[Rfam]
RNA sequence: GUUUGAGUGAUGACUUGAAGUUGUCGGAUACCCCUUCACUCCUUUGAUGAGUGACACACGAAGUCUGACAAAC
Number, nucleotide and partner (000 for none) at each position: 001g073002u072003u071004u070005g069006a000007g000008u000009g000010a000011u000012g000013a000014c000015u000016u000017g000018a000019a000020g000021u000022u000023g000024u000025c000026g000027g000028a000029u000030a000031c000032c000033c000034c000035u000036u000037c000038a000039c000040u000041c000042c000043u000044u000045u000046g000047a000048u000049g000050a000051g000052u000053g000054a000055c000056a000057c000058a000059c000060g000061a000062a000063g000064u000065c000066u000067g000068a000069c005070a004071a003072a002073c001

Shown here is a 73-nucleotide RNA sequence from Chinchilla lanigera, a member of the family "Small nucleolar RNA SNORD101".
Rfam links the family to the GO terms RNA processing and nucleolus.
Rfam classes the family as a C/D-box small nucleolar RNA.